RNA: Singlet oxygen resistance RNA X
Organism: Pseudorhodobacter sp. PARRP1
Nucleotides: 074
Base pairs, nucleotide, nucleotide: 008029009028010027011026012025013024014023048068049067050066051065052064053063054062055061
Number, partner (000 for none) and nucleotide at each position: 001000c002000c003000c004000c005000u006000u007000g008029c009028u010027g011026u012025g013024u014023c015000g016000g017000g018000g019000u020000u021000a022000u023014g024013a025012c026011a027010c028009a029008g030000c031000a032000c033000c034000u035000c036000c037000c038000u039000g040000u041000u042000g043000g044000a045000c046000c047000u048068g049067g050066c051065c052064g053063g054062g055061c056000c057000u058000u059000g060000u061055g062054c063053c064052c065051g066050g067049c068048c069000c070000u071000u072000u073000u074000u